[Rfam]
RNA: Glycine riboswitch aptamer
RNA sequence: UCCGCCGGGUCAGGAGAGAGUUCCCCAGCGGAACCGCCGAAGGCGCAGGCAGCAGCCGAACGCUCAGGCACAAAGGACUGACACAGCGUC
Numbered sequence: 001u002c003c004g005c006c007g008g009g010u011c012a013g014g015a016g017a018g019a020g021u022u023c024c025c026c027a028g029c030g031g032a033a034c035c036g037c038c039g040a041a042g043g044c045g046c047a048g049g050c051a052g053c054a055g056c057c058g059a060a061c062g063c064u065c066a067g068g069c070a071c072a073a074a075g076g077a078c079u080g081a082c083a084c085a086g087c088g089u090c
Base pairs, nucleotide, nucleotide: 007084009082010081011080012079013078020034021033022032023031036069037068038067039065040064043063044062045061049056050055